[Rfam]
Shown here is a 123-nucleotide RNA from Harpegnathos saltator, a member of the family "U5 spliceosomal RNA". For this family Rfam cites "The spliceosomal snRNAs of Caenorhabditis elegans" (Thomas et al., Nucleic Acids Res, 1990).
RNA sequence: GCACUCUGGUUUCCCUUCAAAACACGCAUAAAUCUUUCGCCUUUUACUAAAGAUUUCCGUGGAGGGGAACAAUUAAUGAGUCUAUAAGACAAUUUUUUGUAGAGCCCAGCGUAAAGGCUGGGU
Numbered sequence: 001g002c003a004c005u006c007u008g009g010u011u012u013c014c015c016u017u018c019a020a021a022a023c024a025c026g027c028a029u030a031a032a033u034c035u036u037u038c039g040c041c042u043u044u045u046a047c048u049a050a051a052g053a054u055u056u057c058c059g060u061g062g063a064g065g066g067g068a069a070c071a072a073u074u075a076a077u078g079a080g081u082c083u084a085u086a087a088g089a090c091a092a093u094u095u096u097u098u099g100u101a102g103a104g105c106c107c108a109g110c111g112u113a114a115a116g117g118c119u120g121g122g123u
Stems, first nucleotide, its partner, number of pairs: 003081004009070011030056008101123001105122006